[Rfam]
RNA sequence: CCCUAGCCCCGAUUGAAGCGGCAUCCUUUUUCCUGCUUCUUUAGCAGGGAAAAGAUACAGCGGAAAGCGGGAACAGCU
Numbered sequence: 001c002c003c004u005a006g007c008c009c010c011g012a013u014u015g016a017a018g019c020g021g022c023a024u025c026c027u028u029u030u031u032c033c034u035g036c037u038u039c040u041u042u043a044g045c046a047g048g049g050a051a052a053a054g055a056u057a058c059a060g061c062g063g064a065a066a067g068c069g070g071g072a073a074c075a076g077c078u
Base pairs, nucleotide, nucleotide: 009070010069011068013066014065018061019060023056024055025054029051030050031049032048033047035045036044037043
RNA: Flavo-1 RNA
Organism: Flavobacterium caeni